[Rfam]
Nucleotides: 429
Stems, first nucleotide, its partner, number of pairs: 008132004018127004023042001025040001027038003044072006055063002075094003081088001103116004135396003141390003146384001149381001150378007158370002161366006169359001171207002174204002177201001182197001186193001214275001216273004221269002225265003229259002278313003283308005290302004318352001320350003329338001331336001400419004405412002
Number, partner (000 for none) and nucleotide at each position: 001000c002000a003000a004000c005000a006000a007000a008132a009131u010130g011129g012000a013000u014000a015000g016000c017000a018127c019126g020125g021124c022000a023042a024000u025040c026000g027038g028037c029036c030000a031000g032000a033000u034000g035000a036029g037028g038027u039000a040025g041000c042023u043000c044072a045071g046070c047069c048068a049067c050000u051000g052000g053000a054000g055063c056062c057000a058000c059000g060000u061000c062056g063055g064000a065000a066000u067049g068048u069047g070046g071045u072044u073000c074000a075094u076093g077092a078000c079000c080000u081088g082000c083000g084000g085000g086000a087000u088081c089000c090000a091000a092077u093076c094075g095000c096000c097000a098000a099000g100000g101000c102000g103116g104115g105114u106113g107000a108000a109000g110000a111000g112000c113106c114105a115104c116103c117000a118000a119000a120000a121000c122000g123000c124021g125020c126019c127018g128000c129011c130010c131009a132008u133000c134000a135396g136395c137394a138000g139000a140000a141390u142389a143388u144000u145000c146384a147000c148000u149381a150378a151377u152376a153375a154374a155373g156372g157000c158370a159369g160000a161366a162365u163364g164363a165362c166361g167000a168000a169359g170000c171207g172206g173000c174204g175203g176000a177201u178000a179000c180000c181000g182197g183000g184000c185000a186193g187000c188000g189000a190000a191000a192000u193186c194000a195000a196000g197182c198000g199000c200000c201177a202000c203175c204174c205000u206172u207171c208000a209000a210000c211000a212000a213000a214275a215000u216273a217272g218271u219270g220000g221269a222268u223000a224000c225265c226264g227263c228000u229259g230258c231000g232000u233000g234000g235000u236000u237000u238000a239000u240000c241000a242000a243000c244000c245000g246000g247000u248000u249000u250000u251000a252000a253000a254000u255000a256000a257000g258230g259229c260000a261000u262000a263227g264226c265225g266000u267000c268222a269221u270219u271218g272217c273216u274000c275214u276000c277000u278313g279312u280311u281000u282000g283308u284307c285306u286305a287304u288000g289000u290302a291301u292300g293299g294000c295000u296000g297000c298000a299293u300292c301291a302290u303000a304287a305286u306285g307284g308283g309000a310000u311280g312279a313278u314000u315000u316000u317000a318352u319000a320350c321349u322348g323000a324000c325000c326000a327000g328000a329338c330000g331336g332000c333000a334000c335000u336331u337000g338329g339000a340000u341000g342000a343000a344000a345000a346000a347000a348322c349321a350320g351000c352318a353000a354000a355000a356000a357000a358000a359169u360000g361166c362165g363164u364163u365162g366161u367000a368000u369159c370158u371000a372156u373155c374154u375153u376152u377151a378150u379000u380000g381149u382000c383000a384146u385000a386000a387000u388143g389142u390141a391000c392000c393000g394137u395136g396135c397000a398000g399000a400419c401418u402417u403416g404000c405412a406411c407000u408000u409000g410000u411406g412405u413000a414000c415000g416403c417402a418401g419400g420000c421000a422000a423000a424000u425000a426000g427000a428000g429000u

Shown here is a 429-nucleotide RNA sequence from Brenneria goodwinii, a member of the family "Soft rot Enterobacteriaceae Rev 42 5'UTR". Its family is annotated with cellular response to starvation in the Gene Ontology. The family's RNA type in Rfam is cis-regulatory element. A search with the family's covariance model found it, with a score of 236 bits. On this family, see Kwenda et al., BMC Genomics 2016: "Discovery and profiling of small RNAs responsive to stress conditions in the plant pathogen Pectobacterium atrosepticum". About the family: From bacteria cultured under starvation conditions.